This 53-nucleotide sequence from Azospirillum doebereinerae belongs to the Rfam family "ffh sRNA". On this family, see Meyer et al., BMC Genomics 2009: "Identification of candidate structured RNAs in the marine organism 'Candidatus Pelagibacter ubique'". A search with the family's covariance model found it, with a score of 36 bits. Taxonomically the source falls in Azospirillum (Bacteria, Alphaproteobacteria, Rhodospirillales, Azospirillaceae).
[Rfam]
RNA sequence: CACGCCGGGUAUCUCCGCCAGUCCGCGAGUUGUCGCGCACUGGCGCUUUUGCG
Numbered sequence: 001c002a003c004g005c006c007g008g009g010u011a012u013c014u015c016c017g018c019c020a021g022u023c024c025g026c027g028a029g030u031u032g033u034c035g036c037g038c039a040c041u042g043g044c045g046c047u048u049u050u051g052c053g
Base pairs, nucleotide, nucleotide: 016045017044018043019042020041021040022039025036026035027034028033
Dot-bracket structure: ...............(((((((..((((....))))..)))))))........